Rfam assigns this 68-nucleotide RNA from Halomarina oriensis to the family "eL15-Euryarchaeota ribosomal protein leader". The organism belongs to Halomarina, within Archaea. For this family Rfam cites "Discovery of 20 novel ribosomal leader candidates in bacteria and archaea" (Eckert and Weinberg, BMC Microbiol, 2020).

[Rfam]
RNA sequence: CCUGCUACGGCAGGCCGGAAUGUGGCCCGCGUGGCUCCGUCGGAGUCGCGUCCUGGCUGAACCGCCAA
Number, nucleotide and partner (000 for none) at each position: 001c014002c013003u012004g011005c010006u000007a000008c000009g000010g005011c004012a003013g002014g001015c000016c064017g063018g062019a000020a000021u000022g000023u000024g058025g057026c056027c055028c000029g000030c000031g000032u000033g000034g000035c000036u000037c000038c000039g000040u000041c000042g000043g000044a000045g000046u000047c000048g000049c000050g000051u000052c000053c000054u000055g027056g026057c025058u024059g000060a000061a000062c018063c017064g016065c000066c000067a000068a000
The family's RNA type in Rfam is cis-regulatory leader. A search with the family's covariance model found it, with a score of 39 bits.